[Rfam]
RNA sequence: UAACUGUAAUGGUUAAAUUGGUUCAGAAGGCACUUGAUUUUCUUAGCGCAUCUAUUCCAUUUCCAAAUCAAGAACCCUCCAGCGGCGCCCAGUACGAAUCUUGCGGUGGCCACCCACUCGCAUGGGUAACCUGCGAUGCUGCGCGUGGCCCUAAGCAAUGAAGAUAAUACUUGAGGGAGGUUCCACUCUGCAGAGAGAUCUUCACCGUCAGAUGGCGCGCCGGAUUACGAUCGCUGGGGGCUUGGGAUGGAUCGUUGAGAUGGAGAUGUCAACUACUUUU
Numbered sequence: 001u002a003a004c005u006g007u008a009a010u011g012g013u014u015a016a017a018u019u020g021g022u023u024c025a026g027a028a029g030g031c032a033c034u035u036g037a038u039u040u041u042c043u044u045a046g047c048g049c050a051u052c053u054a055u056u057c058c059a060u061u062u063c064c065a066a067a068u069c070a071a072g073a074a075c076c077c078u079c080c081a082g083c084g085g086c087g088c089c090c091a092g093u094a095c096g097a098a099u100c101u102u103g104c105g106g107u108g109g110c111c112a113c114c115c116a117c118u119c120g121c122a123u124g125g126g127u128a129a130c131c132u133g134c135g136a137u138g139c140u141g142c143g144c145g146u147g148g149c150c151c152u153a154a155g156c157a158a159u160g161a162a163g164a165u166a167a168u169a170c171u172u173g174a175g176g177g178a179g180g181u182u183c184c185a186c187u188c189u190g191c192a193g194a195g196a197g198a199u200c201u202u203c204a205c206c207g208u209c210a211g212a213u214g215g216c217g218c219g220c221c222g223g224a225u226u227a228c229g230a231u232c233g234c235u236g237g238g239g240g241c242u243u244g245g246g247a248u249g250g251a252u253c254g255u256u257g258a259g260a261u262g263g264a265g266a267u268g269u270c271a272a273c274u275a276c277u278u279u280u
Stems, first nucleotide, its partner, number of pairs: 001015004016278002019275005029270004034265002037261003045256004050252010076240003080236005086229002089223002092220002095217002098213004103208004108150001110148004115143001118136005124131002151155001159204007170195003177188003
RNA: Fungal signal recognition particle RNA